A member of the RNA family "Transposase-1 RNA", 59 nucleotides long. Pairs were carried over by alignment from the consensus structure, which is taken from published work. By type it is a small RNA. It is one of the family's seed sequences.
[Rfam]
RNA sequence: CGUUCAGAAGUUGUCUCUGUCGUUACCCACACUAGUGGAUACGAGAAUGCAAUUGUUGA
Numbered sequence: 001c002g003u004u005c006a007g008a009a010g011u012u013g014u015c016u017c018u019g020u021c022g023u024u025a026c027c028c029a030c031a032c033u034a035g036u037g038g039a040u041a042c043g044a045g046a047a048u049g050c051a052a053u054u055g056u057u058g059a
Stems, first nucleotide, its partner, number of pairs: 009054006020044004027038003